[Rfam]
RNA: Streptomyces sRNA 4677
Organism: Streptomyces sp. SID2119
RNA sequence: UGGGCGGGCGGAGGCGCGCGGAGACGUCGUCACUCACACGGGUGAACUGUGCCAACCGGGCUGGAUUUUGGCCCUGUUGGCGGGCAUAUGCUCACGCUGACCACAACCGCAGACAUGAGACGGCCCCCGGCCGGGACUGGCAUCCCGACCGAAGGCCUGACCACCGAGGAAGUAGGAGCUUCCCG
Numbered sequence: 001u002g003g004g005c006g007g008g009c010g011g012a013g014g015c016g017c018g019c020g021g022a023g024a025c026g027u028c029g030u031c032a033c034u035c036a037c038a039c040g041g042g043u044g045a046a047c048u049g050u051g052c053c054a055a056c057c058g059g060g061c062u063g064g065a066u067u068u069u070g071g072c073c074c075u076g077u078u079g080g081c082g083g084g085c086a087u088a089u090g091c092u093c094a095c096g097c098u099g100a101c102c103a104c105a106a107c108c109g110c111a112g113a114c115a116u117g118a119g120a121c122g123g124c125c126c127c128c129g130g131c132c133g134g135g136a137c138u139g140g141c142a143u144c145c146c147g148a149c150c151g152a153a154g155g156c157c158u159g160a161c162c163a164c165c166g167a168g169g170a171a172g173u174a175g176g177a178g179c180u181u182c183c184c185g
Base pairs, nucleotide, nucleotide: 030045031044032043033042034041035040060095062094063093064092122157123156124155125154128151129150130149133146134145135144136143168183169182170181171180172179
Dot-bracket structure: .............................((((((....))))))..............(.(((...........................))))..........................((((..(((..((((......))))..)))..))))..........(((((......)))))..